[Rfam]
RNA sequence: AGAACUUACAGCCUUCUCUUUCCGGUUCUUCCCAGAGUUGGGAAAAGCUGGGUUGAGAAGGUGGAAAAAGAAAAAG
Numbered sequence: 001a002g003a004a005c006u007u008a009c010a011g012c013c014u015u016c017u018c019u020u021u022c023c024g025g026u027u028c029u030u031c032c033c034a035g036a037g038u039u040g041g042g043a044a045a046a047g048c049u050g051g052g053u054u055g056a057g058a059a060g061g062u063g064g065a066a067a068a069a070g071a072a073a074a075a076g
Stems, first nucleotide, its partner, number of pairs: 014059005021052005029044006
mir-320 microRNA precursor family: a 76-nucleotide RNA from Microcebus murinus. The literature on the family includes a 2006 paper in Genome Res by Berezikov et al., "Many novel mammalian microRNA candidates identified by extensive cloning and RAKE analysis". It scores 87 bits against the family's covariance model. Rfam 15.1 lists 659 matches to the family in 129 species.